Small nucleolar RNA snoR74: a 132-nucleotide RNA from Hibiscus trionum.
The family's RNA type in Rfam is H/ACA-box small nucleolar RNA.
The base pairs follow the family's consensus structure, which was predicted with WAR.
Taxonomically the source falls in Hibiscus (Eukaryota, Viridiplantae, Streptophytina, Tracheophyta).
For this family Rfam cites "Experimental RNomics: identification of 140 candidates for small non-messenger RNAs in the plant Arabidopsis thaliana" (Marker et al., Curr Biol, 2002).
Its family is annotated with RNA processing and nucleolus in the Gene Ontology.
RNA sequence: UAAAAAACAGGGUCUUGUUGCCUUUUUCGAACUAGUUCCUUUUAAAGUUCAGGAAAAUCACUUGUGCAUUGUUCUUGGGUAAACCUCUGGAUUUUGUUGGUGCCUGAAUGUUCAGUUAAUGAUGCUGCAUUU
Number, nucleotide and partner (000 for none) at each position: 001u000002a000003a000004a000005a049006a048007a000008c000009a000010g000011g038012g037013u000014c035015u034016u000017g032018u000019u000020g000021c000022c000023u000024u000025u000026u000027u000028c000029g000030a000031a000032c017033u000034a015035g014036u000037u012038c011039c000040u000041u000042u000043u000044a000045a000046a000047g000048u006049u005050c000051a000052g000053g000054a000055a000056a000057a000058u000059c000060a000061c000062u000063u000064g000065u000066g125067c124068a123069u122070u121071g120072u119073u118074c000075u000076u000077g000078g000079g000080u114081a000082a112083a111084c110085c000086u108087c000088u000089g000090g000091a000092u000093u000094u000095u000096g000097u000098u000099g000100g000101u000102g000103c000104c000105u000106g000107a000108a086109u000110g084111u083112u082113c000114a080115g000116u000117u000118a073119a072120u071121g070122a069123u068124g067125c066126u000127g000128c000129a000130u000131u000132u000